[Rfam]
RNA sequence: CUCGUCUCGCUGGGGUGUUCCGGUGUUCCGGAGCUGAGAAAAACCCAUUGAACCUGAACCAGGUCAUGCUGGCGGAGGAAGUUCGAGAUGGCAAGAG
Numbered sequence: 001c002u003c004g005u006c007u008c009g010c011u012g013g014g015g016u017g018u019u020c021c022g023g024u025g026u027u028c029c030g031g032a033g034c035u036g037a038g039a040a041a042a043a044c045c046c047a048u049u050g051a052a053c054c055u056g057a058a059c060c061a062g063g064u065c066a067u068g069c070u071g072g073c074g075g076a077g078g079a080a081g082u083u084c085g086a087g088a089u090g091g092c093a094a095g096a097g
Stems, first nucleotide, its partner, number of pairs: 006085001009082002011047004016041001017034005053078003059072004
Dot-bracket structure: .....(..((((((.((((((........)))))......)..)))).....(((...((((......))))...)))..))..)............
A member of the RNA family "TPP riboswitch aptamer (THI element)" from Pelagibacterium lentulum, 97 nucleotides long. On this family, see Edwards and Ferre-D'Amare, Structure 2006: "Crystal structures of the thi-box riboswitch bound to thiamine pyrophosphate analogs reveal adaptive RNA-small molecule recognition". A search with the family's covariance model found it, with a score of 59 bits. Vitamin B(1) in its active form thiamin pyrophosphate (TPP) is an essential coenzyme that is synthesised by coupling of pyrimidine and thiazole moieties in bacteria.